Small nucleolar RNA SNORD113/SNORD114 family: a 75-nucleotide RNA. About the family: The imprinted human domain at 14q32 contains two clusters of tandemly repeated small nucleolar RNAs named 14q(I) and 14q(II) snoRNAs. These two clusters are named SNORD113 and SNORD114 respectively in the HGNC approved gene symbol nomenclature. The snoRNAs found in both clusters are clearly related and are represented here by a single family. These snoRNAs are intron encoded and are processed from the tissue-specific non-coding human MEG8 RNA, which lies downstream of the imprinted genes DLK1 and GTL2. snoRNAs 14q(I) and 14q(II) differ from previously identified C/D box snoRNAs in their expression profiles and lack of complementarity to rRNA and snRNA. Homologues of these snoRNAs are found in the imprinted non-coding mouse transcript Rian, and in the rat non-coding Bsr (brain-specific repetitive) RNA. Rfam's curators put it in the seed alignment. Gene Ontology terms of the family: nucleolus and RNA processing.

RNA sequence: UGAGCCAGUGAUGAAAACUGGUGGCAUAGAAGUCAAGGAUGCUGAAUAAUGUGUGUCUAGAACUCUGAGGUUCAA
Numbered sequence: 001u002g003a004g005c006c007a008g009u010g011a012u013g014a015a016a017a018c019u020g021g022u023g024g025c026a027u028a029g030a031a032g033u034c035a036a037g038g039a040u041g042c043u044g045a046a047u048a049a050u051g052u053g054u055g056u057c058u059a060g061a062a063c064u065c066u067g068a069g070g071u072u073c074a075a
Stems, first nucleotide, its partner, number of pairs: 002073005